[Rfam]
Nucleotides: 229
Stems, first nucleotide, its partner, number of pairs: 008222004016079009032064006039057001083112004087107007113139011141214007
Number, partner (000 for none) and nucleotide at each position: 001000g002000g003000a004000u005000g006000a007000g008222g009221u010220a011219g012000a013000g014000g015000c016079g017078c018077a019076a020075a021074a022073g023072g024071c025000a026000u027000c028000a029000g030000u031000a032064a033063c034062a035061u036060a037059u038000u039057u040000g041000a042000g043000g044000a045000u046000g047000a048000c049000a050000a051000c052000g053000a054000u055000g056000a057039a058000c059037a060036u061035a062034u063033g064032u065000g066000a067000a068000a069000g070000g071024g072023u073022c074021u075020u076019u077018u078017g079016c080000c081000g082000a083112a084111g085110u086109c087107g088106a089105a090104c091103u092102u093101g094000u095000g096000u097000c098000a099000a100000c101093c102092a103091a104090g105089u106088u107087u108000u109086g110085a111084u112083u113139g114138g115137u116136g117135u118134u119133g120132c121131u122130u123129u124000g125000a126000a127000a128000a129123a130122a131121a132120g133119u134118a135117a136116c137115a138114c139113u140000c141214u142213c143212a144211u145210a146209u147208u148000u149000u150000a151000g152000c153000g154000u155000u156000u157000u158000u159000u160000a161000g162000u163000g164000u165000g166000u167000g168000u169000u170000c171000a172000c173000u174000u175000u176000u177000u178000a179000u180000u181000a182000g183000c184000c185000u186000u187000u188000u189000u190000g191000a192000a193000c194000a195000u196000c197000c198000u199000a200000u201000u202000u203000c204000g205000c206000u207000g208147a209146a210145u211144a212143u213142g214141g215000g216000g217000a218000g219011c220010u221009a222008c223000a224000g225000a226000u227000c228000a229000c